Rfam assigns this 104-nucleotide sequence from Callithrix jacchus to the family "Small nucleolar RNA SNORD124". A reference for the family is Yang et al. (2006), "snoSeeker: an advanced computational package for screening of guide and orphan snoRNA genes in the human genome", Nucleic Acids Res. Its family is annotated with nucleolus and RNA processing in the Gene Ontology. Lineage of the source: Eukaryota > Vertebrata > Amniota > Callithrix > Callithrix. By type it is a C/D-box small nucleolar RNA.
[Rfam]
RNA sequence: UGGUCUCAAGGAAGGGAUGAUGUUCCAACUGAGACUCAAGAAAAGGAUUCUGAGCCUCAGAGAUUUGAAGGAGCCACGUGGUCCCUUACCUUCCUAGAGACAAA
Dot-bracket structure: ........(((((((.........................................................................))))))).........